[Rfam]
Nucleotides: 119
Stems, first nucleotide, its partner, number of pairs: 003054006011046004018039006070085001074080001089116011
Number, partner (000 for none) and nucleotide at each position: 001000g002000u003054g004053a005052a006051g007050u008049u009000g010000a011046u012045c013044a014043c015000a016000a017000g018039c019038a020037a021036a022035c023034a024000u025000u026000u027000a028000c029000c030000c031000c032000u033000u034023u035022g036021u037020u038019u039018g040000a041000c042000c043014g044013u045012g046011a047000a048000a049008a050007a051006u052005u053004u054003c055000u056000c057000c058000c059000a060000u061000c062000c063000c064000c065000u066000u067000u068000g069000u070085u071000c072000g073000u074080a075000u076000a077000g078000a079000a080074u081000a082000g083000a084000g085070a086000a087000a088000a089116g090115g091114c092113c093112u094111u095110g096109c097108a098107g099106u100000u101000g102000g103000a104000g105000a106099g107098c108097u109096g110095c111094a112093a113092g114091g115090c116089c117000u118000u119000u
Description
The family of this 119-nucleotide RNA from Mesobacillus boroniphilus is "RNA Staph. aureus E (RoxS)". The family's RNA type in Rfam is small RNA. The literature on the family includes a 2015 paper in PLoS Genet by Durand et al., "A nitric oxide regulated small RNA controls expression of genes involved in redox homeostasis in Bacillus subtilis". Its family is annotated with regulation of translational initiation in the Gene Ontology. Rfam describes the family as follows. It was shown to be regulated by the presence of nitric oxide (NO). In Bacillus subtilis it controls expression of genes with functions related to oxidative stress and oxidation-reduction reactions and it was renamed RoxS (for related to oxidative stress). Lineage of the source: Bacteria > Bacillati > Bacilli > Bacillaceae > Mesobacillus boroniphilus.